[Rfam]
Nucleotides: 055
Stems, first nucleotide, its partner, number of pairs: 002013003026046006033039002
Number, partner (000 for none) and nucleotide at each position: 001000u002013g003012g004011u005000a006000g007000a008000u009000g010000c011004a012003c013002c014000u015000u016000g017000a018000u019000u020000c021000a022000u023000c024000u025000u026046c027045c028044c029043g030042g031041c032000u033039c034038c035000u036000g037000g038034g039033g040000u041031g042030c043029c044028g045027g046026g047000u048000u049000u050000u051000u052000u053000u054000u055000u